[Rfam]
Overview: This 100-nucleotide RNA sequence from Equus caballus belongs to the Rfam family "mir-658 microRNA precursor family". The family's consensus secondary structure was predicted with RNAalifold. Its family is annotated with miRNA-mediated post-transcriptional gene silencing and RISC complex in the Gene Ontology. The match comes from Rfam's covariance-model search (93 bits).

RNA sequence: UCUCGGUUGCCGUGGCUGCAGGCCGGGCCCGCCCGCUCGCCCGCUGACAGCGAGGCUUAGGGCGGAGGGAAGCGGGUCCGUUGGUCGGCCGGGAACGAGG
Dot-bracket structure: .((((.((.(((((((.((.((((...(((..(((((.((.((((...)))).).)....))))).))).....)))).))..))))..))).)))))).

Description:
NCBI's taxonomy places the organism under Eukaryota, Euteleostomi, Amniota, Boreoeutheria, Equus.